[Rfam]
RNA sequence: CGAGUCGGCAGGGCGGUCGCGGCGGGGAGACCCGUCGAGGAAAGUCCGGACUCCACAGGGCAGGGUGGUUGCCAACAGCAACCCGGGGCGACCCGCGGGACAGUGCCACAGAGAACAGACCGCCUGGUGUGACCCACCAGGUAAGGGUGAAACGGUGGUGUAAGAGACCACCAGCACCCCGGGUGACCGGGGUGGCUCGGUAAACCCCACCCGGAGCAAGGCCAAGAGGGAUCCGCGAGGAUCCUGCGCAGGCGUUCGAGGGCUGCCCGCCCGAGCCUGCGGGUAGGCCGCACGAGCCUGUCGGCGACGGCAGGCCAAGAUGGAUGACCGCCCAUCGGCGCGCGGGUGACCGCGGCGCCGGGGACAGAAUCCGGCUUACAUGCCGACUCGUUCG
Numbered sequence: 001c002g003a004g005u006c007g008g009c010a011g012g013g014c015g016g017u018c019g020c021g022g023c024g025g026g027g028a029g030a031c032c033c034g035u036c037g038a039g040g041a042a043a044g045u046c047c048g049g050a051c052u053c054c055a056c057a058g059g060g061c062a063g064g065g066u067g068g069u070u071g072c073c074a075a076c077a078g079c080a081a082c083c084c085g086g087g088g089c090g091a092c093c094c095g096c097g098g099g100a101c102a103g104u105g106c107c108a109c110a111g112a113g114a115a116c117a118g119a120c121c122g123c124c125u126g127g128u129g130u131g132a133c134c135c136a137c138c139a140g141g142u143a144a145g146g147g148u149g150a151a152a153c154g155g156u157g158g159u160g161u162a163a164g165a166g167a168c169c170a171c172c173a174g175c176a177c178c179c180c181g182g183g184u185g186a187c188c189g190g191g192g193u194g195g196c197u198c199g200g201u202a203a204a205c206c207c208c209a210c211c212c213g214g215a216g217c218a219a220g221g222c223c224a225a226g227a228g229g230g231a232u233c234c235g236c237g238a239g240g241a242u243c244c245u246g247c248g249c250a251g252g253c254g255u256u257c258g259a260g261g262g263c264u265g266c267c268c269g270c271c272c273g274a275g276c277c278u279g280c281g282g283g284u285a286g287g288c289c290g291c292a293c294g295a296g297c298c299u300g301u302c303g304g305c306g307a308c309g310g311c312a313g314g315c316c317a318a319g320a321u322g323g324a325u326g327a328c329c330g331c332c333c334a335u336c337g338g339c340g341c342g343c344g345g346g347u348g349a350c351c352g353c354g355g356c357g358c359c360g361g362g363g364a365c366a367g368a369a370u371c372c373g374g375c376u377u378a379c380a381u382g383c384c385g386a387c388u389c390g391u392u393c394g
Base pairs, nucleotide, nucleotide: 001390002389003388004387005386006385007384008383009382010381011379012332013331014330015329016328017327018326020037021036022035023034024033025032026031042377043376044375046374047373048372049371050370051216052215053214054213058268059267060266061265063212064211065210066209067208068082069081070080071079072078083097084095085094086093087092098207099206103205104204105201106200107199120146121145122142123141124140125139126138127137128136129135154172155171156170157169158168159167174196175194176193177192178191179190180189181188182187220289221288222287223286248280249279250278251277252276253275260272261271262270263269296315297314298313299312300311301310302309303308
This 394-nucleotide RNA from Actinophytocola xinjiangensis belongs to the Rfam family "Bacterial RNase P class A". NCBI's taxonomy places the organism under Bacteria, Bacillati, Actinomycetota, Pseudonocardiaceae, Actinophytocola. The family's consensus secondary structure is taken from published work.